[Rfam]
Rfam assigns this 73-nucleotide sequence from Legionella waltersii to the family "Salmonella enterica sRNA STnc40". Rfam classes the family as a small RNA. Pairs were carried over by alignment from the consensus structure, which was predicted with LocARNA. A search with the family's covariance model found it, with a score of 49 bits.

RNA sequence: UAGUCUCAAUGGGGACGUUUCAACUUAAAACACUAGUUUAAAUUAAAAAGGCGCAGUAUUCUGCGCCUUUUUU
Numbered sequence: 001u002a003g004u005c006u007c008a009a010u011g012g013g014g015a016c017g018u019u020u021c022a023a024c025u026u027a028a029a030a031c032a033c034u035a036g037u038u039u040a041a042a043u044u045a046a047a048a049a050g051g052c053g054c055a056g057u058a059u060u061c062u063g064c065g066c067c068u069u070u071u072u073u
Stems, first nucleotide, its partner, number of pairs: 002019003006013002046071011